[Rfam]
RNA sequence: UCCUGACUGGUUCGAGAACCUCCCAGUAUAAAAAACUAAGGUAUU
Numbered sequence: 001u002c003c004u005g006a007c008u009g010g011u012u013c014g015a016g017a018a019c020c021u022c023c024c025a026g027u028a029u030a031a032a033a034a035a036c037u038a039a040g041g042u043a044u045u
Stems, first nucleotide, its partner, number of pairs: 006027005016037001
The family of this 45-nucleotide sequence from Romboutsia sp. CE17 is "PreQ1 (pre queuosine) riboswitch aptamer". About the family: This family is a bacterial riboswitch that binds to the metabolite preQ1, an intermediate in the biosynthesis of the modified nucleoside queuosine from GTP. One example of this riboswitch is located in the leader of the Bacillus subtilis ykvJKLM (queCDEF) operon which encodes four genes necessary for queuosine production. PreQ1 binding to the riboswitch aptamer is thought to induce premature transcription termination within the leader to down-regulate expression of these genes. A search with the family's covariance model found it, with a score of 48 bits. Rfam 15.1 lists 873 matches to the family in 692 species.